[Rfam]
FMN riboswitch aptamer (RFN element): a 134-nucleotide RNA sequence from Glaciihabitans tibetensis. The source organism's lineage runs through Bacteria, Actinomycetota, Actinomycetes, Micrococcales and Glaciihabitans.
RNA sequence: UACGUGCUCCGGGGUCGGUGAAAAUCCGAACCGGCGGUUAUAGUCCGCGACCCGCUGAGAGAUUCGUCUCGACGCGGUUGAUCUGGUGAAAUUCCGGAACCGACGGUUAAAGUCCGGAUGGGAGGAUGCACGGA
Numbered sequence: 001u002a003c004g005u006g007c008u009c010c011g012g013g014g015u016c017g018g019u020g021a022a023a024a025u026c027c028g029a030a031c032c033g034g035c036g037g038u039u040a041u042a043g044u045c046c047g048c049g050a051c052c053c054g055c056u057g058a059g060a061g062a063u064u065c066g067u068c069u070c071g072a073c074g075c076g077g078u079u080g081a082u083c084u085g086g087u088g089a090a091a092u093u094c095c096g097g098a099a100c101c102g103a104c105g106g107u108u109a110a111a112g113u114c115c116g117g118a119u120g121g122g123a124g125g126a127u128g129c130a131c132g133g134a
Base pairs, nucleotide, nucleotide: 003132004131005130006129007128008126009125010124016028017027018026030113031112032102033101034048035047036046037045043100044099052077053076054075055074082098083097084096085095086094104116105115106114